[Rfam]
About this RNA:
c-di-GMP-I-GGC riboswitch aptamer: a 92-nucleotide sequence from Paenibacillus sp. FSL H7-0737.

RNA sequence: CGCGUUAAAGGUAAAAUCAUCGAAAGAUGAUGACACAAAGCCAUGGGUCUAAAGCCUUUCUACAGAAGGAAAUGAUCGCCAGGCCGCCAUAG
Numbered sequence: 001c002g003c004g005u006u007a008a009a010g011g012u013a014a015a016a017u018c019a020u021c022g023a024a025a026g027a028u029g030a031u032g033a034c035a036c037a038a039a040g041c042c043a044u045g046g047g048u049c050u051a052a053a054g055c056c057u058u059u060c061u062a063c064a065g066a067a068g069g070a071a072a073u074g075a076u077c078g079c080c081a082g083g084c085c086g087c088c089a090u091a092g
Base pairs, nucleotide, nucleotide: 001092004088011036012035016031017030018029019028020027021026034078040084041083042082044081045080046079047076048075049074

Gene Ontology term of the family: cyclic-di-GMP binding.